RNA sequence: CCCUGUAUCGAAAGUGACUGUGGAGCGACUCUGUCUCCAGGUCAUCGAUAGCGCAGGAAGAGGAAGUGAAAGUCUUUCCCGUGUUUGCUGGAUUCUGUUCCUGACAAACCCUGAAUCUUUCACACA
Numbered sequence: 001c002c003c004u005g006u007a008u009c010g011a012a013a014g015u016g017a018c019u020g021u022g023g024a025g026c027g028a029c030u031c032u033g034u035c036u037c038c039a040g041g042u043c044a045u046c047g048a049u050a051g052c053g054c055a056g057g058a059a060g061a062g063g064a065a066g067u068g069a070a071a072g073u074c075u076u077u078c079c080c081g082u083g084u085u086u087g088c089u090g091g092a093u094u095c096u097g098u099u100c101c102u103g104a105c106a107a108a109c110c111c112u113g114a115a116u117c118u119u120u121c122a123c124a125c126a
Stems, first nucleotide, its partner, number of pairs: 002057005008051001014045006022038004066123007083109005088103001090101003

Small nucleolar RNA SNORA71: a 126-nucleotide sequence from Labeo rohita. Rfam describes the family as follows. The members of this family belong to the H/ACA class of snoRNAs which bind a number of proteins (including dyskerin, Gar1p and Nop10p) to form snoRNP complexes. This class of snoRNAs are thought to guide the sites of modification of uridines to pseudouridines by forming direct base pairing interactions with substrate RNAs. This family includes U71 (SNORA71), ACA39 (SNORA39) and ACA60 (SNORA60). U71 and ACA60 are predicted to guide the pseudouridylation of U406 and U1004 in 18S rRNA respectively. By type it is an H/ACA-box small nucleolar RNA. A reference for the family is Ganot et al. (1997), "The family of box ACA small nucleolar RNAs is defined by an evolutionarily conserved secondary structure and ubiquitous sequence elements essential for RNA accumulation", Genes Dev. A search with the family's covariance model found it, with a score of 86 bits. NCBI's taxonomy places the organism under Eukaryota, Neopterygii, Otophysi, Cypriniformes, Labeo. The base pairs follow the family's consensus structure, which was predicted with PFOLD.